[Rfam]
RNA sequence: GGAGAUAAACGCGCGCGUAAUAAGCGGACUGGACCCGGGUGCGAUUCCCGGCGGCUCCACCAACCUUCCUUCCGGGUAUCGCCGGGAAGCAUGGGGCCGAUCAGCAUCGACAGACGUCUAAAGGCGUUGCUUUCUCCCGGCUUGGCCCACCGUUUCGGGCCUUUAACUAACUGCGAACGAUAACUUCGCUGAGGAAAUCCGUCUCGCCGCGUAA
Number, nucleotide and partner (000 for none) at each position: 001g137002g136003a135004g134005a133006u000007a000008a000009a000010c000011g000012c000013g127014c126015g125016c124017g000018u000019a000020a000021u000022a000023a000024g000025c116026g115027g000028a000029c113030u112031g111032g000033a000034c000035c051036c050037g049038g048039g047040u000041g000042c000043g000044a000045u000046u000047c039048c038049c037050g036051g035052c099053g098054g097055c096056u095057c094058c093059a000060c000061c000062a000063a000064c000065c000066u000067u000068c000069c000070u000071u000072c000073c000074g000075g000076g000077u000078a000079u000080c000081g000082c000083c000084g000085g000086g000087a000088a000089g000090c000091a000092u000093g058094g057095g056096g055097c054098c053099g052100a000101u000102c000103a000104g000105c000106a000107u000108c000109g000110a000111c031112a030113g029114a000115c026116g025117u000118c000119u000120a000121a000122a000123g000124g016125c015126g014127u013128u000129g000130c000131u000132u000133u005134c004135u003136c002137c001138c152139g151140g150141c000142u000143u000144g000145g000146c000147c000148c000149a000150c140151c139152g138153u000154u000155u000156c000157g000158g000159g000160c000161c000162u000163u000164u000165a000166a000167c000168u000169a000170a000171c000172u000173g000174c000175g000176a000177a000178c000179g000180a000181u000182a000183a000184c000185u000186u000187c000188g000189c000190u000191g000192a000193g000194g000195a000196a000197a000198u000199c000200c000201g000202u000203c000204u000205c000206g000207c000208c000209g000210c000211g000212u000213a000214a000